[Rfam]
RNA: pan motif
RNA sequence: AAGCUGACAUCUUAUUGAGUCAGACUAAAUAAUUAAUUUUGGCAUAUCGACUGGUAUCCAAAAGGAACUAGAGCGGAGG
Number, nucleotide and partner (000 for none) at each position: 001a000002a026003g025004c023005u022006g021007a020008c019009a000010u018011c017012u000013u000014a000015u000016u000017g011018a010019g008020u007021c006022a005023g004024a000025c003026u002027a000028a000029a000030u000031a000032a000033u000034u000035a000036a000037u000038u000039u000040u000041g000042g000043c000044a000045u000046a000047u000048c075049g074050a000051c071052u070053g069054g068055u067056a000057u066058c065059c064060a000061a000062a000063a000064g059065g058066a057067a055068c054069u053070a052071g051072a000073g000074c049075g048076g000077a000078g000079g000